[Rfam]
RNA sequence: AACGCGCUCCGGGGUCAGUGAAAAUCUGUACCGGCGGUAUAGUCCGCGACCCGCUCGAGUCUCAGCAGUGAGAGUCGGGCGGCUGAACUGGUGUGAUUCCAGUACCGACGGUUAAAGUCCGGAUACGAGGCAGCGCGCG
Numbered sequence: 001a002a003c004g005c006g007c008u009c010c011g012g013g014g015u016c017a018g019u020g021a022a023a024a025u026c027u028g029u030a031c032c033g034g035c036g037g038u039a040u041a042g043u044c045c046g047c048g049a050c051c052c053g054c055u056c057g058a059g060u061c062u063c064a065g066c067a068g069u070g071a072g073a074g075u076c077g078g079g080c081g082g083c084u085g086a087a088c089u090g091g092u093g094u095g096a097u098u099c100c101a102g103u104a105c106c107g108a109c110g111g112u113u114a115a116a117g118u119c120c121g122g123a124u125a126c127g128a129g130g131c132a133g134c135g136c137g138c139g
Base pairs, nucleotide, nucleotide: 003137004136005135006134007133008132009130010129016028017027018026030118031117032107033106034047035046036045037044042105043104051082052081053080054079055078056077057076058075087103088102089101090100091099109121110120111119
The family of this 139-nucleotide sequence from Frondihabitans sp. PAMC 28766 is "FMN riboswitch aptamer (RFN element)". Lineage of the source: Bacteria > Actinomycetes > Micrococcales > Microbacteriaceae > Frondihabitans. It scores 87 bits against the family's covariance model.